RNA: Bacterial small subunit ribosomal RNA, nucleotides 1 to 543
RNA sequence: GUUAUAGAGAGUUUGAUGAUGGCUCUAACUGAACACUGUCCAAGUACUUGACACAUGCUAAUCGAACGACUAAUUAGGUUAUAAGUAAUAUUUAUAUUAUUUAAAACUAAGUAGUAGUGGUGUACAGGUGAGUAUAAGAUAAAUUGGUUACCUUAAACCAAGGGAAAAAUCCCUUAUAAAUAAAUAAAGGUAAAAAAAAAUCCGGUUUAAGAUGUUAAUUUUUAUCUCGGUGAGUAGUAGGAAAGGUAAUGACUUUUCUAGCAGUAACCGUAGUCGUGACUGGGAAGUUGAUCGACCACAUUGGGUCUGAAAAAAACCCAAUGCUUUUUUGUACAGCAGUGAGGAAUAUUGGUCAAUGGCCGAAAGGCUGAACCAGUAACUUGGAAGAAUGAAAUUGUAUUUGUAUGAAUACAGUAGCGAUUAAUUCGCAUAAAAUUCUAAAUAGAUUGUAUAUAAUGACAUAAUCUAUUUAUAAGUCUUGACCAAACUACGUGCCAGCAGUCGCGGUAAUACGUAGGAGGCUAGUGUUAGUUAUCUUUAUUG
Numbered sequence: 001g002u003u004a005u006a007g008a009g010a011g012u013u014u015g016a017u018g019a020u021g022g023c024u025c026u027a028a029c030u031g032a033a034c035a036c037u038g039u040c041c042a043a044g045u046a047c048u049u050g051a052c053a054c055a056u057g058c059u060a061a062u063c064g065a066a067c068g069a070c071u072a073a074u075u076a077g078g079u080u081a082u083a084a085g086u087a088a089u090a091u092u093u094a095u096a097u098u099a100u101u102u103a104a105a106a107c108u109a110a111g112u113a114g115u116a117g118u119g120g121u122g123u124a125c126a127g128g129u130g131a132g133u134a135u136a137a138g139a140u141a142a143a144u145u146g147g148u149u150a151c152c153u154u155a156a157a158c159c160a161a162g163g164g165a166a167a168a169a170u171c172c173c174u175u176a177u178a179a180a181u182a183a184a185u186a187a188a189g190g191u192a193a194a195a196a197a198a199a200a201u202c203c204g205g206u207u208u209a210a211g212a213u214g215u216u217a218a219u220u221u222u223u224a225u226c227u228c229g230g231u232g233a234g235u236a237g238u239a240g241g242a243a244a245g246g247u248a249a250u251g252a253c254u255u256u257u258c259u260a261g262c263a264g265u266a267a268c269c270g271u272a273g274u275c276g277u278g279a280c281u282g283g284g285a286a287g288u289u290g291a292u293c294g295a296c297c298a299c300a301u302u303g304g305g306u307c308u309g310a311a312a313a314a315a316a317c318c319c320a321a322u323g324c325u326u327u328u329u330u331g332u333a334c335a336g337c338a339g340u341g342a343g344g345a346a347u348a349u350u351g352g353u354c355a356a357u358g359g360c361c362g363a364a365a366g367g368c369u370g371a372a373c374c375a376g377u378a379a380c381u382u383g384g385a386a387g388a389a390u391g392a393a394a395u396u397g398u399a400u401u402u403g404u405a406u407g408a409a410u411a412c413a414g415u416a417g418c419g420a421u422u423a424a425u426u427c428g429c430a431u432a433a434a435a436u437u438c439u440a441a442a443u444a445g446a447u448u449g450u451a452u453a454u455a456a457u458g459a460c461a462u463a464a465u466c467u468a469u470u471u472a473u474a475a476g477u478c479u480u481g482a483c484c485a486a487a488c489u490a491c492g493u494g495c496c497a498g499c500a501g502u503c504g505c506g507g508u509a510a511u512a513c514g515u516a517g518g519a520g521g522c523u524a525g526u527g528u529u530a531g532u533u534a535u536c537u538u539u540a541u542u543g
Stems, first nucleotide, its partner, number of pairs: 009025005027533004032529006039385006045378002047343001052341003056338003061121003066118002069115002072112001074110004128299003137227007147219002152211007160175004189203002228270004234262002238260008273296004278289004301321006323332002349375001351374003357370005387438004397429001441469001445465001476522005488517005498505002